A member of the RNA family "c-di-GMP-I riboswitch aptamer" from Bacillus sp. OK048, 90 nucleotides long. Lineage of the source: Bacteria > Bacillati > Caryophanales > Bacillaceae > Bacillus. The family's consensus secondary structure is taken from published work.
RNA sequence: GUACGAUAAAGGCAAAAUCAUUGAAAAAUGAUGACGCAAAACUAUAGGGGCUAACAUCAUGUUGGAUGAUAAUGCUCGCCAGUUUCCGAA
Number, nucleotide and partner (000 for none) at each position: 001g000002u000003a000004c000005g000006a000007u000008a000009a000010a000011g000012g037013c036014a000015a000016a000017a032018u031019c030020a029021u028022u027023g000024a000025a000026a000027a022028a021029u020030g019031a018032u017033g000034a000035c000036g013037c012038a000039a000040a084041a083042c082043u081044a000045u000046a000047g080048g079049g076050g075051c074052u000053a000054a000055c000056a070057u069058c068059a067060u000061g000062u000063u000064g000065g000066a000067u059068g058069a057070u056071a000072a000073u000074g051075c050076u049077c000078g000079c048080c047081a043082g042083u041084u040085u000086c000087c000088g000089a000090a000